[Rfam]
RNA sequence: AAAGGAGCAAUAAACCCUCUUUUGAUAGAACAAGUAAAGGGUUUAUUGCUCCUUAUGUU
Numbered sequence: 001a002a003a004g005g006a007g008c009a010a011u012a013a014a015c016c017c018u019c020u021u022u023u024g025a026u027a028g029a030a031c032a033a034g035u036a037a038a039g040g041g042u043u044u045a046u047u048g049c050u051c052c053u054u055a056u057g058u059u
Stems, first nucleotide, its partner, number of pairs: 002054013020037001021034004
This 59-nucleotide RNA from Salvia splendens belongs to the Rfam family "Plastid-psbA-3 3UTR RNA".
The family's RNA type in Rfam is cis-regulatory element.
Rfam describes the family as follows. Plastid psbA-3 is a non-coding RNA (ncRNA) present in plastids. It was identified in inverted repeat sequences in the 3 prime untranslate region (3UTR) of photosystem II quinone-binding protein (psbA).
The family's consensus secondary structure was predicted with LocARNA.
NCBI's taxonomy places the organism under Eukaryota, Viridiplantae, Magnoliopsida, Lamiaceae, core Calosphace.
The literature on the family includes a 2023 paper in Plant Commun by Richter et al., "Retrograde signaling in plants: A critical review focusing on the GUN pathway and beyond".